[Rfam]
RNA: DUF805b RNA
RNA sequence: GCAGGCGAAGCCGAAAACCUGUAAAAGAGUAGGCA
Numbered sequence: 001g002c003a004g005g006c007g008a009a010g011c012c013g014a015a016a017a018c019c020u021g022u023a024a025a026a027g028a029g030u031a032g033g034c035a
Base pairs, nucleotide, nucleotide: 002021003020004019005018010034011033012032